[Rfam]
RNA sequence: CGGCCUCACCUGGGGGGUCCCGUCAAGGGGCUGAGAUUCUGCUGGCGUGGUUUUCCAUGCAGCGCAGUGACCCGAUGAACCUGAUCCAGUUCACACUGGCGUAGGGAUGGUGUCGGCCUCGCGGG
Numbered sequence: 001c002g003g004c005c006u007c008a009c010c011u012g013g014g015g016g017g018u019c020c021c022g023u024c025a026a027g028g029g030g031c032u033g034a035g036a037u038u039c040u041g042c043u044g045g046c047g048u049g050g051u052u053u054u055c056c057a058u059g060c061a062g063c064g065c066a067g068u069g070a071c072c073c074g075a076u077g078a079a080c081c082u083g084a085u086c087c088a089g090u091u092c093a094c095a096c097u098g099g100c101g102u103a104g105g106g107a108u109g110g111u112g113u114c115g116g117c118c119u120c121g122c123g124g125g
Base pairs, nucleotide, nucleotide: 007112008111009110010109011074012073013072014071016068017031018030019029020028021027039067040066041065042064080105081104082103083102086099087098088097089096
The record is a 125-nucleotide RNA from Nitratireductor pacificus, which matches "TPP riboswitch aptamer (THI element)" in Rfam. Vitamin B(1) in its active form thiamin pyrophosphate (TPP) is an essential coenzyme that is synthesised by coupling of pyrimidine and thiazole moieties in bacteria.